[Rfam]
RNA: transfer-messenger RNA
Organism: endosymbiont of Escarpia spicata
RNA sequence: GGGGGCGACGUAGGCUUCGACGGGGGUUACAAAACCUUAGGUGCAUGUCGAGGGGCAGAUUACCUCGUAAAACUAGCUGUAAACUUAUAGUUGCCAACGACGACAACUACGCACUCGCCGCUUAAUAACCGGUAGAAUGCCGUCUGACUGGAGCCGUGCUUAUGCGUCCAGGGUCUUCGGACCAAUCAGGCGUCAUAUCUCAUAAGAUCGCGAUGAAGCUUGUUCGGGGCGGAUUCGUUAAAACUUUACCGAAACCGCUAUCUGCACACCCUGUCCGUCGGGUGGCAGCCAGCUAAAAAUAAUAGACCGGACUAAACAUGUAGAACCUCAGGCAGAGGACUCGCGGACGGCGGUUCGAAUCCGCCCGCCUCCACCA
Numbered sequence: 001g002g003g004g005g006c007g008a009c010g011u012a013g014g015c016u017u018c019g020a021c022g023g024g025g026g027u028u029a030c031a032a033a034a035c036c037u038u039a040g041g042u043g044c045a046u047g048u049c050g051a052g053g054g055g056c057a058g059a060u061u062a063c064c065u066c067g068u069a070a071a072a073c074u075a076g077c078u079g080u081a082a083a084c085u086u087a088u089a090g091u092u093g094c095c096a097a098c099g100a101c102g103a104c105a106a107c108u109a110c111g112c113a114c115u116c117g118c119c120g121c122u123u124a125a126u127a128a129c130c131g132g133u134a135g136a137a138u139g140c141c142g143u144c145u146g147a148c149u150g151g152a153g154c155c156g157u158g159c160u161u162a163u164g165c166g167u168c169c170a171g172g173g174u175c176u177u178c179g180g181a182c183c184a185a186u187c188a189g190g191c192g193u194c195a196u197a198u199c200u201c202a203u204a205a206g207a208u209c210g211c212g213a214u215g216a217a218g219c220u221u222g223u224u225c226g227g228g229g230c231g232g233a234u235u236c237g238u239u240a241a242a243a244c245u246u247u248a249c250c251g252a253a254a255c256c257g258c259u260a261u262c263u264g265c266a267c268a269c270c271c272u273g274u275c276c277g278u279c280g281g282g283u284g285g286c287a288g289c290c291a292g293c294u295a296a297a298a299a300u301a302a303u304a305g306a307c308c309g310g311a312c313u314a315a316a317c318a319u320g321u322a323g324a325a326c327c328u329c330a331g332g333c334a335g336a337g338g339a340c341u342c343g344c345g346g347a348c349g350g351c352g353g354u355u356c357g358a359a360u361c362c363g364c365c366c367g368c369c370u371c372c373a374c375c376a
Stems, first nucleotide, its partner, number of pairs: 001372007021345002024342005035332003039328004044320005049067005055080004060075001113138001115136002117133004141192006148171004154166001159206006211237003222255003227250001257293003262288004269282003273312004277307003349365005